[Rfam]
RNA: L31-Corynebacteriaceae ribosomal protein leader
RNA sequence: ACUCAGGCACGAUCUGCGCCUUAUAUAUACGCACCAAUCAAGCGUUAUCUGCGCGCCGAACCGACCUGAAGUUCAAUCCUGAGGGA
Numbered sequence: 001a002c003u004c005a006g007g008c009a010c011g012a013u014c015u016g017c018g019c020c021u022u023a024u025a026u027a028u029a030c031g032c033a034c035c036a037a038u039c040a041a042g043c044g045u046u047a048u049c050u051g052c053g054c055g056c057c058g059a060a061c062c063g064a065c066c067u068g069a070a071g072u073u074c075a076a077u078c079c080u081g082a083g084g085g086a
Stems, first nucleotide, its partner, number of pairs: 001072003004068004013059002016056004029045004